The record is a 594-nucleotide part of an RNA from Tetrapisispora phaffii, which matches "Eukaryotic large subunit ribosomal RNA" in Rfam.

RNA sequence: CGGGGAAAGAAGACCCUGUUGAGCUUGACUCUAGUUUGACAUUGUGAAGAGACAUAGAGGGUGUAGCAUAAGUGGGAGCUCCGGCGCCAGUGAAAUACCACUACCUUUAUAGUUUCUUUACUUAUUCAAUUAAGCGGAGCUGGAAUUCAUUUUCCACGUUCUAGCGCAAAGUGCGGAUACGUGCUGAUCUGGGUUGAAGACAUUGUCAGGUGGGGAGUUUGGCUGGGGCGGCACAUCUGUUAAACGAUAACGCAGAUGUCCUAAGGGGGGCUCAUGGAGAACAGAAAUCUCCAGUAGAACAAAAGGGUAAAAGCCCCCUUGAUUUUGAUUUUCAGUGUGAAUACAAACCAUGAAAGUGUGGCCUAUCGAUCCUUUAGUCCCUCGGAGUUUGAGGCUAGAGGUGCCAGAAAAGUUACCACAGGGAUAACUGGCUUGUGGCAGUCAAGCGUUCAUAGCGACAUUGCUUUUUGAUUCUUCGAUGUCGGCUCUUCCUAUCAUACCGAAGCAGAAUUCGGUAAGCGUUGGAUUGUUCACCCACUAAUAGGGAACGUGAGCUGGGUUUAGACCGUCGUGAGACAGGUUAGUUUUACCCUA
Numbered sequence: 001c002g003g004g005g006a007a008a009g010a011a012g013a014c015c016c017u018g019u020u021g022a023g024c025u026u027g028a029c030u031c032u033a034g035u036u037u038g039a040c041a042u043u044g045u046g047a048a049g050a051g052a053c054a055u056a057g058a059g060g061g062u063g064u065a066g067c068a069u070a071a072g073u074g075g076g077a078g079c080u081c082c083g084g085c086g087c088c089a090g091u092g093a094a095a096u097a098c099c100a101c102u103a104c105c106u107u108u109a110u111a112g113u114u115u116c117u118u119u120a121c122u123u124a125u126u127c128a129a130u131u132a133a134g135c136g137g138a139g140c141u142g143g144a145a146u147u148c149a150u151u152u153u154c155c156a157c158g159u160u161c162u163a164g165c166g167c168a169a170a171g172u173g174c175g176g177a178u179a180c181g182u183g184c185u186g187a188u189c190u191g192g193g194u195u196g197a198a199g200a201c202a203u204u205g206u207c208a209g210g211u212g213g214g215g216a217g218u219u220u221g222g223c224u225g226g227g228g229c230g231g232c233a234c235a236u237c238u239g240u241u242a243a244a245c246g247a248u249a250a251c252g253c254a255g256a257u258g259u260c261c262u263a264a265g266g267g268g269g270g271c272u273c274a275u276g277g278a279g280a281a282c283a284g285a286a287a288u289c290u291c292c293a294g295u296a297g298a299a300c301a302a303a304a305g306g307g308u309a310a311a312a313g314c315c316c317c318c319u320u321g322a323u324u325u326u327g328a329u330u331u332u333c334a335g336u337g338u339g340a341a342u343a344c345a346a347a348c349c350a351u352g353a354a355a356g357u358g359u360g361g362c363c364u365a366u367c368g369a370u371c372c373u374u375u376a377g378u379c380c381c382u383c384g385g386a387g388u389u390u391g392a393g394g395c396u397a398g399a400g401g402u403g404c405c406a407g408a409a410a411a412g413u414u415a416c417c418a419c420a421g422g423g424a425u426a427a428c429u430g431g432c433u434u435g436u437g438g439c440a441g442u443c444a445a446g447c448g449u450u451c452a453u454a455g456c457g458a459c460a461u462u463g464c465u466u467u468u469u470g471a472u473u474c475u476u477c478g479a480u481g482u483c484g485g486c487u488c489u490u491c492c493u494a495u496c497a498u499a500c501c502g503a504a505g506c507a508g509a510a511u512u513c514g515g516u517a518a519g520c521g522u523u524g525g526a527u528u529g530u531u532c533a534c535c536c537a538c539u540a541a542u543a544g545g546g547a548a549c550g551u552g553a554g555c556u557g558g559g560u561u562u563a564g565a566c567c568g569u570c571g572u573g574a575g576a577c578a579g580g581u582u583a584g585u586u587u588u589a590c591c592c593u594a
Base pairs, nucleotide, nucleotide: 003593004592005591007588008587015422016421017420018419020418021417022414023413024412025411026410028218029217030216031215035210036209037208038207039206040205041204044121045120046119047118048117049116050115051114052113053112054110055109056108057107058106059105060104071102072101073100074099075098078085079084125198126197127196128195129194135191136190137189138188142154143153144152145151170185171184172183173182174181221234222232223231224230235257236256237255238254239253240252260361261360266318267317268316269315270314271313272298273297275293276292277291278290279289280288299308300307323347324346325345328342329341330340331339349358350357351356372400373399374398375397376396377395380394381393382392383391431472433470435469437465438464439463440462441461442460446456447455483558484556485555486554487553488550489547490546491545492544493543496521499516500515501514502513503512504511523537524536525535527533564582565581566580567579568577569576570575
Dot-bracket structure: ..(((.((......((((.(((((((.((((...(((((((..(((((((((((((((((..........(((((..((....))............))))).))))))).))))))))))...(((((.....((((...((((.....))))...............(((((......)))))..))))..))))).....)))))))....))))..((((.....))).)((((((...........))))))..((....((((((((.((((((.......))))))...))((......))....))))))....(((..((((.......))))..))).(((....))).))..........((((((..((((.......)))))))))).........)))))..))))))........(.(.(.((((((...((.......))...))))))...)).)..........(((((((((((..(..((((((......))))))....).(((.(.....).))).....)))))..)..)))).).....(((((((....))).))))....))..))).